[Rfam]
RNA sequence: ACCUGGCCCAGGCACGCACCGUGUCGGGGUCAUCAGACAGGCACAGUUCUCGGGGAAGAACCGGGGCAUGUUGGGGCGUU
Numbered sequence: 001a002c003c004u005g006g007c008c009c010a011g012g013c014a015c016g017c018a019c020c021g022u023g024u025c026g027g028g029g030u031c032a033u034c035a036g037a038c039a040g041g042c043a044c045a046g047u048u049c050u051c052g053g054g055g056a057a058g059a060a061c062c063g064g065g066g067c068a069u070g071u072u073g074g075g076g077c078g079u080u
Stems, first nucleotide, its partner, number of pairs: 004032006011025006046069002049066003052062002
RNA: nrdJ RNA
Organism: Streptomyces sp. A73